[Rfam]
RNA sequence: CGCAUGGGGGCUGCGAUCUCCCCACGAGGCGACAUGCCCAAGCAUCGCGUCCAGCUCAACCCCCAGCAAGGACGCAUCAUG
Numbered sequence: 001c002g003c004a005u006g007g008g009g010g011c012u013g014c015g016a017u018c019u020c021c022c023c024a025c026g027a028g029g030c031g032a033c034a035u036g037c038c039c040a041a042g043c044a045u046c047g048c049g050u051c052c053a054g055c056u057c058a059a060c061c062c063c064c065a066g067c068a069a070g071g072a073c074g075c076a077u078c079a080u081g
Stems, first nucleotide, its partner, number of pairs: 005024006047075006

A member of the RNA family "chrB-a RNA", 81 nucleotides long. The family has 163 seed sequences and 347 matches in Rfam 15.1. Pairs were carried over by alignment from the consensus structure, which is taken from published work. Rfam's curators put it in the seed alignment.